[Rfam]
RNA sequence: ACAUGGAUUUGGAUUUAUGGCAGGCCCAUCCCCUUGGGUCUUUCAUAGUGCCCCAUGCCAGAGCAAACUGUGGCCUUGAACCAUUGCCUGGCCUCAGCCGAUAGGCUGCAGGAACAAAACAAGACAUGAAUUC
Numbered sequence: 001a002c003a004u005g006g007a008u009u010u011g012g013a014u015u016u017a018u019g020g021c022a023g024g025c026c027c028a029u030c031c032c033c034u035u036g037g038g039u040c041u042u043u044c045a046u047a048g049u050g051c052c053c054c055a056u057g058c059c060a061g062a063g064c065a066a067a068c069u070g071u072g073g074c075c076u077u078g079a080a081c082c083a084u085u086g087c088c089u090g091g092c093c094u095c096a097g098c099c100g101a102u103a104g105g106c107u108g109c110a111g112g113a114a115c116a117a118a119a120c121a122a123g124a125c126a127u128g129a130a131u132u133c
Stems, first nucleotide, its partner, number of pairs: 002057003005053002008050001015048006022041003025037002071126002074123001076121001087112002089108006
RNA: Small nucleolar RNA SNORA42/SNORA80 family
Organism: Myotis myotis